[Rfam]
RNA sequence: CAGCAUGUUGGUAGCUGAAAGCCAAGGGCGGUAGCGUA
Numbered sequence: 001c002a003g004c005a006u007g008u009u010g011g012u013a014g015c016u017g018a019a020a021g022c023c024a025a026g027g028g029c030g031g032u033a034g035c036g037u038a
Base pairs, nucleotide, nucleotide: 008025009024010023011022012021